[Rfam]
RNA sequence: UAUUCUUCUUCGUCUGUUGGCUAAGAUUGUCAUGUCUGUUCUUGUCUGCUUAAUAUCUGAUAGAUCUUUGCUGUGAGGACUUGCCAUUAAAUAGCUCUGUGGAGCUGGGCUAUGGCCCGUGGGCUUGCUUUGUCUUCUCACUGCACCAAAACCUGGCAGGGAAAACACUGCUUCCCUGGAUAUUCUCCCAU
Number, nucleotide and partner (000 for none) at each position: 001u000002a000003u000004u000005c000006u000007u026008c025009u024010u000011c000012g021013u020014c019015u000016g000017u000018u000019g014020g013021c012022u000023a000024a009025g008026a007027u000028u000029g000030u000031c000032a000033u000034g000035u000036c000037u000038g000039u000040u000041c000042u000043u062044g061045u060046c059047u000048g057049c000050u000051u000052a000053a000054u000055a000056u000057c048058u000059g046060a045061u044062a043063g000064a000065u079066c078067u077068u076069u075070g074071c000072u000073g000074u070075g069076a068077g067078g066079a065080c000081u000082u000083g000084c000085c000086a000087u000088u000089a000090a000091a000092u000093a000094g000095c000096u000097c000098u000099g000100u000101g000102g000103a000104g000105c000106u000107g000108g147109g146110c143111u000112a000113u140114g139115g000116c000117c000118c000119g000120u000121g130122g129123g128124c000125u000126u000127g000128c123129u122130u121131u000132g000133u000134c000135u000136u000137c000138u000139c114140a113141c000142u000143g110144c000145a000146c109147c108148a000149a000150a186151a000152c000153c000154u182155g181156g000157c178158a177159g176160g175161g174162a173163a000164a000165a000166c000167a000168c000169u000170g000171c000172u000173u162174c161175c160176c159177u158178g157179g000180a000181u155182a154183u000184u000185c000186u150187c000188c000189c000190a000191u000
RNA: U2 spliceosomal RNA